[Rfam]
RNA: Plastid-ndhJ 3UTR RNA
Organism: Pyrus ussuriensis x Pyrus communis
RNA sequence: GAUAGAUCUUUGUAUGACGCACAUCACUUAAAUGGGCUCUCGAAAGCAACAAAAGAG
Number, nucleotide and partner (000 for none) at each position: 001g000002a000003u000004a000005g000006a000007u000008c000009u000010u000011u000012g000013u000014a000015u000016g000017a000018c000019g037020c036021a000022c034023a033024u032025c000026a000027c000028u000029u000030a000031a000032a024033u023034g022035g000036g020037c019038u000039c000040u000041c000042g000043a000044a000045a000046g000047c000048a000049a000050c000051a000052a000053a000054a000055g000056a000057g000